The family of this 130-nucleotide RNA from Desulforamulus ferrireducens is "FMN riboswitch aptamer (RFN element)". A search with the family's covariance model found it, with a score of 113 bits. NCBI's taxonomy places the organism under Bacteria, Bacillota, Eubacteriales, Peptococcaceae, Desulforamulus. Rfam describes the family as follows. The RFN element is a highly conserved domain that is found frequently in the 5'-untranslated regions of prokaryotic mRNAs that encode for flavin mononucleotide (FMN) biosynthesis and transport proteins.
RNA sequence: AGUAACCUUCAGGGUUAGGUGAAAUUCCUUACCGGCGGUAUGGCCUUGGGCCGAGCCCGCGAGCCCGCAAGGGCAGGAUCUGGUGAGAUGCCAGAGCCGACAGUUAAAGUCUGGAUGGGAGAAGGUUGUC
Numbered sequence: 001a002g003u004a005a006c007c008u009u010c011a012g013g014g015u016u017a018g019g020u021g022a023a024a025u026u027c028c029u030u031a032c033c034g035g036c037g038g039u040a041u042g043g044c045c046u047u048g049g050g051c052c053g054a055g056c057c058c059g060c061g062a063g064c065c066c067g068c069a070a071g072g073g074c075a076g077g078a079u080c081u082g083g084u085g086a087g088a089u090g091c092c093a094g095a096g097c098c099g100a101c102a103g104u105u106a107a108a109g110u111c112u113g114g115a116u117g118g119g120a121g122a123a124g125g126u127u128g129u130c
Stems, first nucleotide, its partner, number of pairs: 003128008017029003031110002033099002035060004055097002065073001079095005101113003